A member of the RNA family "TPP riboswitch aptamer (THI element)" from Dermatophilus congolensis, 118 nucleotides long.
Nucleotides: 118
Stems, first nucleotide, its partner, number of pairs: 006106001008104003011069004017031004038063005075099003080093004
Number, partner (000 for none) and nucleotide at each position: 001000c002000g003000c004000a005000g006106c007000a008104u009103c010102c011069g012068c013067g014066g015000g016000a017031g018030c019029c020028c021000c022000a023000c024000a025000a026000a027000c028020g029019g030018g031017c032000u033000g034000a035000g036000a037000g038063g039062g040061u041060g042059g043000c044000a045000c046000g047000c048000a049000a050000c051000c052000a053000a054000a055000g056000c057000g058000c059042c060041c061040a062039c063038c064000g065000a066014c067013c068012g069011c070000u071000c072000g073000a074000a075099c076098c077097u078000g079000u080093c081092c082091g083090g084000u085000u086000a087000a088000c089000a090083c091082c092081g093080g094000c095000g096000a097077a098076g099075g100000g101000a102010g103009g104008a105000a106006g107000c108000u109000g110000u111000g112000c113000g114000c115000a116000u117000c118000g
The family's consensus secondary structure is taken from published work.